The record is an 81-nucleotide sequence from Theropithecus gelada, which matches "Small nucleolar RNA SNORD66" in Rfam. The source organism's lineage runs through Eukaryota, Sarcopterygii, Tetrapoda, Cercopithecidae and Theropithecus. A reference for the family is Huttenhofer et al. (2001), "RNomics: an experimental approach that identifies 201 candidates for novel, small, non-messenger RNAs in mouse", EMBO J.
RNA sequence: AUCCUAUGAUGAUUACUUUUAUGUGUCAGUUUGACUGGGCCACAGAGUUCCCAGAUAAUUGAUUAAACAUUAUUUCUGGGU
Numbered sequence: 001a002u003c004c005u006a007u008g009a010u011g012a013u014u015a016c017u018u019u020u021a022u023g024u025g026u027c028a029g030u031u032u033g034a035c036u037g038g039g040c041c042a043c044a045g046a047g048u049u050c051c052c053a054g055a056u057a058a059u060u061g062a063u064u065a066a067a068c069a070u071u072a073u074u075u076c077u078g079g080g081u
Base pairs, nucleotide, nucleotide: 001081002080003079004078